Ascomycota telomerase RNA: a 210-nucleotide part of an RNA from Fusarium avenaceum.
RNA sequence: UCCCCCACAGUCUUCCGGCCCUCGUUUCUCGAAAGAGAUGUCUAUUGCAGACCGCCCGUCUUUUUUUGGUUACCCGACCAUAUGCCGCUCUCGAGCCUGUAACAGGACCCCGUGAAUGCCGCAGCUGGAUUAUGGCGGGUAGCGCGUCCUGUAUAGGAUGUACCAGACGGAUGGGCGUACGAGAUUCGGAACUUAACCCUAAGAAGAUAU
Numbered sequence: 001u002c003c004c005c006c007a008c009a010g011u012c013u014u015c016c017g018g019c020c021c022u023c024g025u026u027u028c029u030c031g032a033a034a035g036a037g038a039u040g041u042c043u044a045u046u047g048c049a050g051a052c053c054g055c056c057c058g059u060c061u062u063u064u065u066u067u068g069g070u071u072a073c074c075c076g077a078c079c080a081u082a083u084g085c086c087g088c089u090c091u092c093g094a095g096c097c098u099g100u101a102a103c104a105g106g107a108c109c110c111c112g113u114g115a116a117u118g119c120c121g122c123a124g125c126u127g128g129a130u131u132a133u134g135g136c137g138g139g140u141a142g143c144g145c146g147u148c149c150u151g152u153a154u155a156g157g158a159u160g161u162a163c164c165a166g167a168c169g170g171a172u173g174g175g176c177g178u179a180c181g182a183g184a185u186u187c188g189g190a191a192c193u194u195a196a197c198c199c200u201a202a203g204a205a206g207a208u209a210u
Base pairs, nucleotide, nucleotide: 009193010192011191015189016188017187018186
Dot-bracket structure: ........(((...((((.......................................................................................................................................................................)))).))).................

The base pairs follow the family's consensus structure. A search with the family's covariance model found it, with a score of 322 bits. On this family, see Qi et al., Nucleic Acids Res 2013: "The common ancestral core of vertebrate and fungal telomerase RNAs". It is annotated as a non-coding RNA gene. Gene Ontology terms of the family: telomerase catalytic core complex, telomerase activity and telomere maintenance via telomerase.